This 89-nucleotide RNA from Aquilegia coerulea belongs to the Rfam family "Small nucleolar RNA SNORD34". Rfam 15.1 lists 1,319 matches to the family in 583 species. The family's RNA type in Rfam is C/D-box small nucleolar RNA. The base pairs follow the family's consensus structure, which was predicted with PFOLD. The match comes from Rfam's covariance-model search (49 bits). Rfam describes the family as follows. snoRNA U34 is found in intron 5 of the ribosomal protein L13a gene in humans. A reference for the family is Galardi et al. (2002), "Purified box C/D snoRNPs are able to reproduce site-specific 2'-O-methylation of target RNA in vitro", Mol Cell Biol. Clan: SNORD34 clan.
RNA sequence: GAGGCUUAUGAUGAGUUCUACAUGUAUUGCCUACAUUGUUUGAUUUUUCUUAAAUGUGAGAAAAAUAUAUGAAUUAUUCUGAGGCUUUC
Numbered sequence: 001g002a003g004g005c006u007u008a009u010g011a012u013g014a015g016u017u018c019u020a021c022a023u024g025u026a027u028u029g030c031c032u033a034c035a036u037u038g039u040u041u042g043a044u045u046u047u048u049c050u051u052a053a054a055u056g057u058g059a060g061a062a063a064a065a066u067a068u069a070u071g072a073a074u075u076a077u078u079c080u081g082a083g084g085c086u087u088u089c
Stems, first nucleotide, its partner, number of pairs: 001088001003086004